The family of this 85-nucleotide sequence is "RAGATH-27 RNA". Rfam classes the family as a small RNA.

RNA sequence: UUCAUUGUUUAUCGGAAACUUUAAACUAUAACCAUUCAAACUUUUCCAGAAGUUAGUUUGAAUAGAAAUUAAAAAGAAACUUCUG
Numbered sequence: 001u002u003c004a005u006u007g008u009u010u011a012u013c014g015g016a017a018a019c020u021u022u023a024a025a026c027u028a029u030a031a032c033c034a035u036u037c038a039a040a041c042u043u044u045u046c047c048a049g050a051a052g053u054u055a056g057u058u059u060g061a062a063u064a065g066a067a068a069u070u071a072a073a074a075a076g077a078a079a080c081u082u083c084u085g
Base pairs, nucleotide, nucleotide: 035062036061038059039058040057041056042055047085048084049083050082051081052080053079